[Rfam]
RNA sequence: GCUGAGCUCUAUAGCGGGAGUUUGUAAUCCAAGUGGGAGCGCAUUUGGGGGUUUGAACGCUUGGUCACGCAUCUGAGUCUGGGUUUGGUGGUGUAUGAGGCUGGCUCGCCCACUCCAAGUUGAGUAGCGAGAUGCGUAGCUUGAGCGAAGGUUUAGGCCGCGCAUCUUCUAAAGCGGAGGGGACCACGAGAGGCUGGUUUCAUAGAGCAACGUACACCUCCCGCUCUCAACGGUGGAAGUUUAACGGGCGGCCACCAAUUUUCUGGAGAGAAAAUUUCCAAACAUAGUUUGAAGAAGUAUAUUG
Dot-bracket structure: ((((((((((......)))))))....(((....))))))............(.(.(.(.((..(((.((...((.((.(((((((((.(.((..((....(.(((((..(..((((.((((((.((((((((((((.((((((((....)))))))).)))))))))(....).(((((.....(((.....(((......))).....)))...))))).)))))))))..)))).).....))))).).)).))....)))))).........)))).)).)))).))).))..).).).)
Rfam assigns this 304-nucleotide RNA sequence from Phoenix dactylifera to the family "Plant signal recognition particle RNA". The match comes from Rfam's covariance-model search (132 bits). The family has 63 seed sequences and 4,988 matches in Rfam 15.1. The family's consensus secondary structure is taken from published work.